[Rfam]
Nucleotides: 106
Stems, first nucleotide, its partner, number of pairs: 020058007071095003078092004
Number, partner (000 for none) and nucleotide at each position: 001000a002000u003000g004000u005000u006000u007000a008000g009000g010000a011000a012000u013000u014000c015000u016000c017000u018000a019000c020058a021057a022056c023055c024054u025053g026052c027000u028000c029000g030000a031000c032000c033000a034000g035000a036000a037000c038000a039000u040000u041000a042000a043000a044000a045000c046000c047000a048000a049000u050000a051000c052026g053025c054024a055023g056022g057021u058020u059000c060000a061000c062000a063000a064000u065000u066000u067000c068000c069000c070000u071095g072094g073093u074000g075000u076000u077000g078092g079091c080090g081089c082000a083000a084000u085000a086000u087000u088000c089081g090080c091079g092078c093073a094072c095071c096000c097000c098000g099000g100000c101000c102000u103000a104000g105000g106000u